[Rfam]
About this RNA: A member of the RNA family "Plastid-psbA-1 3UTR RNA" from Dendrobium catenatum, 108 nucleotides long.
RNA sequence: UGGAAAUUCCUUUUAAAAAAGGAAAAAACUAUUAUGUGUGGGUACUAGACUGUCCAGAAGCGAAUCAGAACAUGCCACAUCACUUAAGUGAUGUGGCAUGUUUUGAUU
Numbered sequence: 001u002g003g004a005a006a007u008u009c010c011u012u013u014u015a016a017a018a019a020a021g022g023a024a025a026a027a028a029c030u031a032u033u034a035u036g037u038g039u040g041g042g043u044a045c046u047a048g049a050c051u052g053u054c055c056a057g058a059a060g061c062g063a064a065u066c067a068g069a070a071c072a073u074g075c076c077a078c079a080u081c082a083c084u085u086a087a088g089u090g091a092u093g094u095g096g097c098a099u100g101u102u103u104u105g106a107u108u
Stems, first nucleotide, its partner, number of pairs: 008023005063108013077094003081090003
The family is grouped with related families in Rfam's "Plastid-psbA 3UTR RNA clan".
The match comes from Rfam's covariance-model search (55 bits).
Rfam's curators write: Plastid psbA-1 is a non-coding RNA (ncRNA) present in plastids. It was identified in inverted repeat sequences in the 3 prime untranslate region (3UTR) of photosystem II quinone-binding protein (psbA).
The family's consensus secondary structure was predicted with LocARNA.
Lineage of the source: Eukaryota > Tracheophyta > Petrosaviidae > Dendrobiinae > Dendrobium.